BsrG: a 232-nucleotide RNA sequence from Peptococcaceae bacterium CEB3. The family's consensus secondary structure was predicted with WAR. On this family, see Saito et al., Gene 2008: "Novel small RNA-encoding genes in the intergenic regions of Bacillus subtilis". The family's RNA type in Rfam is small RNA. A search with the family's covariance model found it, with a score of 62 bits. Rfam's curators write: bsrE, bsrG and bsrH pair through intermolecular interactions with antisense sRNAs.
RNA sequence: GUACAACUCAAUAGGGGUCGGGGUGGGCGGCUAAUCCCCUGGAAAGGGGGUGAUGCCUUGAGCGUGUAUCAAUCACUAUCACUAAUGAUUGCCUUCGCAACUUUGGUUGUGCUGAUACUCAGACAUAAGCAAAAGUAGCCUGCCCCACAAGCAAUGGCUACUUUGCUUUUCCCCGUUUUGCCGCCCAUUGACGGCUGUGAGUUGUGCUACCGGGAUGUUUCCAGCGUCCCGG
Numbered sequence: 001g002u003a004c005a006a007c008u009c010a011a012u013a014g015g016g017g018u019c020g021g022g023g024u025g026g027g028c029g030g031c032u033a034a035u036c037c038c039c040u041g042g043a044a045a046g047g048g049g050g051u052g053a054u055g056c057c058u059u060g061a062g063c064g065u066g067u068a069u070c071a072a073u074c075a076c077u078a079u080c081a082c083u084a085a086u087g088a089u090u091g092c093c094u095u096c097g098c099a100a101c102u103u104u105g106g107u108u109g110u111g112c113u114g115a116u117a118c119u120c121a122g123a124c125a126u127a128a129g130c131a132a133a134a135g136u137a138g139c140c141u142g143c144c145c146c147a148c149a150a151g152c153a154a155u156g157g158c159u160a161c162u163u164u165g166c167u168u169u170u171c172c173c174c175g176u177u178u179u180g181c182c183g184c185c186c187a188u189u190g191a192c193g194g195c196u197g198u199g200a201g202u203u204g205u206g207c208u209a210c211c212g213g214g215a216u217g218u219u220u221c222c223a224g225c226g227u228c229c230c231g232g
Stems, first nucleotide, its partner, number of pairs: 001207005007201003014182002020146004025140002032053001034051001036050005060120003064116002073088003097112003155175003183196001185194002210232010